[Rfam]
Nucleotides: 072
Stems, first nucleotide, its partner, number of pairs: 012068001015065011027053002
Number, partner (000 for none) and nucleotide at each position: 001000u002000g003000c004000u005000u006000a007000a008000g009000u010000u011000u012068u013000c014000c015065u016064c017063g018062g019061c020060a021059g022058u023057u024056a025055a026000c027053u028052g029000c030000a031000g032000c033000c034000g035000g036000u037000u038000c039000u040000u041000u042000a043000a044000a045000a046000u047000u048000u049000c050000g051000a052028c053027a054000a055025u056024u057023a058022a059021c060020u061019g062018c063017c064016g065015a066000a067000a068012a069000a070000c071000a072000u